[Rfam]
RNA: Small nucleolar RNA U3
RNA sequence: AAGACUAUACUUUCAGGGAUCAUUUCUUUAGUUGUGGACUUGAGAAAUGUGUUUCUAAAGAGUUUGGUCUCGCUGCCCACGAUGAAGAGUUGAGAUGUUUCCUUCAGAGCAGGAAACUGGUGGGAAGAUUUUGUUUCUUCUCCACUGUUGAAGACUGUUCAGAGUUUCUCAGAGAGACUGUGAAGGAGGAAACAUGAUCUGAGUGUG
Numbered sequence: 001a002a003g004a005c006u007a008u009a010c011u012u013u014c015a016g017g018g019a020u021c022a023u024u025u026c027u028u029u030a031g032u033u034g035u036g037g038a039c040u041u042g043a044g045a046a047a048u049g050u051g052u053u054u055c056u057a058a059a060g061a062g063u064u065u066g067g068u069c070u071c072g073c074u075g076c077c078c079a080c081g082a083u084g085a086a087g088a089g090u091u092g093a094g095a096u097g098u099u100u101c102c103u104u105c106a107g108a109g110c111a112g113g114a115a116a117c118u119g120g121u122g123g124g125a126a127g128a129u130u131u132u133g134u135u136u137c138u139u140c141u142c143c144a145c146u147g148u149u150g151a152a153g154a155c156u157g158u159u160c161a162g163a164g165u166u167u168c169u170c171a172g173a174g175a176g177a178c179u180g181u182g183a184a185g186g187a188g189g190a191a192a193c194a195u196g197a198u199c200u201g202a203g204u205g206u207g
Base pairs, nucleotide, nucleotide: 001041002040003039005037009032010031011030015027016026017025018024049065051063053062054061076207078205079204080203095195096194097193098192099191100190101189102188103187104186105185109158110157111156119146120145121144122143123142124140125139126138127137128136161181163179164178165177166176167175168174169173